[Rfam]
RNA sequence: UAAAACCUUUUGCUGAAUCCUAAAAUAGGAGCGGGGGAACCAAAUGAGCGGUUAAAAGCCGCUAGGGGCGAAUCCUUUUAAGGUAGGGAUAACUCUCAUCCCAAGUCCGACAGCUAACCUCGUAAGCGUCUGAAGAGAGGAAGU
Numbered sequence: 001u002a003a004a005a006c007c008u009u010u011u012g013c014u015g016a017a018u019c020c021u022a023a024a025a026u027a028g029g030a031g032c033g034g035g036g037g038a039a040c041c042a043a044a045u046g047a048g049c050g051g052u053u054a055a056a057a058g059c060c061g062c063u064a065g066g067g068g069c070g071a072a073u074c075c076u077u078u079u080a081a082g083g084u085a086g087g088g089a090u091a092a093c094u095c096u097c098a099u100c101c102c103a104a105g106u107c108c109g110a111c112a113g114c115u116a117a118c119c120u121c122g123u124a125a126g127c128g129u130c131u132g133a134a135g136a137g138a139g140g141a142a143g144u
Stems, first nucleotide, its partner, number of pairs: 011128004018030003031123006041065001066108003074083003086102004
This 144-nucleotide RNA sequence from Bacillus sp. 165 belongs to the Rfam family "c-di-AMP riboswitch aptamer (ydaO/yuaA leader)". The match comes from Rfam's covariance-model search (95 bits).